mir-205 microRNA precursor family: a 75-nucleotide RNA from Nothobranchius furzeri.
Pairs were carried over by alignment from the consensus structure, which was predicted with RNAalifold.
Its family is annotated with RISC complex and miRNA-mediated post-transcriptional gene silencing in the Gene Ontology.
Rfam 15.1 lists 1,154 matches to the family in 646 species.
[Rfam]
RNA sequence: GUGUUUUAUCCUUCAUUCCACCGGAGUCUGUCUAGCGUGCCAAUCAGAUUUCAGUGGUUUGAAGAGUAAGACACC
Dot-bracket structure: ..........(((((...(((.((((.(((..............))).)))).)))...)))))...........
Background
The organism belongs to Nothobranchius, within Eukaryota.